[Rfam]
RNA sequence: GCAAUAGAAUGGCUUAUAUGGGCGGUCGGCUACCUCUCGAAGAAGGGAGGGAUGCCUAUAUGACAGUAUAUGAAGCACUCAUGUUAAUGCUUACUUUCGGCAUAUUAAUUGUUGCCAUGCUGUCAUUUAGAAACGACAAAUAGACCGCCCUCGAACAAGGAUAACGGUCAAUUUGUCGUCUAUACUUCGUUUCGUUUAGCCACCGCCCUUAAAAGCGGCUAUUGCCCUAGGAGUCAUGUUCCCGCAUGGCUC
Numbered sequence: 001g002c003a004a005u006a007g008a009a010u011g012g013c014u015u016a017u018a019u020g021g022g023c024g025g026u027c028g029g030c031u032a033c034c035u036c037u038c039g040a041a042g043a044a045g046g047g048a049g050g051g052a053u054g055c056c057u058a059u060a061u062g063a064c065a066g067u068a069u070a071u072g073a074a075g076c077a078c079u080c081a082u083g084u085u086a087a088u089g090c091u092u093a094c095u096u097u098c099g100g101c102a103u104a105u106u107a108a109u110u111g112u113u114g115c116c117a118u119g120c121u122g123u124c125a126u127u128u129a130g131a132a133a134c135g136a137c138a139a140a141u142a143g144a145c146c147g148c149c150c151u152c153g154a155a156c157a158a159g160g161a162u163a164a165c166g167g168u169c170a171a172u173u174u175g176u177c178g179u180c181u182a183u184a185c186u187u188c189g190u191u192u193c194g195u196u197u198a199g200c201c202a203c204c205g206c207c208c209u210u211a212a213a214a215g216c217g218g219c220u221a222u223u224g225c226c227c228u229a230g231g232a233g234u235c236a237u238g239u240u241c242c243c244g245c246a247u248g249g250c251u252c
Stems, first nucleotide, its partner, number of pairs: 001225005007219001010202005017155001019153001020150003024145001026143001031052001033050006062124007075090003099116004166186002203218004231252009
RNA: BsrG